[Rfam]
RNA: MIR396 microRNA precursor family
RNA sequence: CUCUGUAUUCUUCCACAGCUUUCUUGAACUGCAACCUUUUUAAUAUUGGUUUUAUCUCAUAAAUCUAUUUGCAUAAAAUAGUGAUUUUAAUUUAGAUCGCAUCUGUACGAUCGAUUUGCAGUUCAAUAAAGCUGUGGGAAGAUACAUACA
Numbered sequence: 001c002u003c004u005g006u007a008u009u010c011u012u013c014c015a016c017a018g019c020u021u022u023c024u025u026g027a028a029c030u031g032c033a034a035c036c037u038u039u040u041u042a043a044u045a046u047u048g049g050u051u052u053u054a055u056c057u058c059a060u061a062a063a064u065c066u067a068u069u070u071g072c073a074u075a076a077a078a079u080a081g082u083g084a085u086u087u088u089a090a091u092u093u094a095g096a097u098c099g100c101a102u103c104u105g106u107a108c109g110a111u112c113g114a115u116u117u118g119c120a121g122u123u124c125a126a127u128a129a130a131g132c133u134g135u136g137g138g139a140a141g142a143u144a145c146a147u148a149c150a
Stems, first nucleotide, its partner, number of pairs: 004146004013137003017133006024126004029121005